[Rfam]
RNA: mir-33 microRNA precursor family
Organism: Culex quinquefasciatus
RNA sequence: GGGUGCAUUGUAGUUGCAUUGCACGUUUUGCGUUCGAAAAGUCCAGUGCAGUACUUCUGCAAUGCAAACCAGG
Dot-bracket structure: (.(((((((((((..(.(((((((.....................))))))).)..))))))))))..))...